[Rfam]
RNA sequence: GAUUGCAGUGAUGACUCCAUAAUAUUCAAGCUCAACAGACCGGACUGCAGGUUUUUCUCAGUCGAGAAAAUAUUUGCGUGUCGAAAACCCGCUGAUCUGAGCAAUC
Dot-bracket structure: ((((((..............................................................................................))))))
RNA: Small nucleolar RNA Z107/R87